Shown here is a 58-nucleotide RNA sequence from Hydrastis canadensis, a member of the family "Plastid-psbA-4 3UTR RNA". It is annotated as a cis-regulatory element. The family's consensus secondary structure was predicted with LocARNA. On this family, see Richter et al., Plant Commun 2023: "Retrograde signaling in plants: A critical review focusing on the GUN pathway and beyond". Plastid psbA-4 is a non-coding RNA (ncRNA) present in plastids. It was identified in inverted repeat sequences in the 3 prime untranslate region (3UTR) of photosystem II quinone-binding protein (psbA).
RNA sequence: GUUGCAGGAGCAAUACCCACUUUCUUGUUCUGUCAAGAGGUUGGGUAUUGCUCCUGCA
Numbered sequence: 001g002u003u004g005c006a007g008g009a010g011c012a013a014u015a016c017c018c019a020c021u022u023u024c025u026u027g028u029u030c031u032g033u034c035a036a037g038a039g040g041u042u043g044g045g046u047a048u049u050g051c052u053c054c055u056g057c058a
Stems, first nucleotide, its partner, number of pairs: 004057012019042001022039006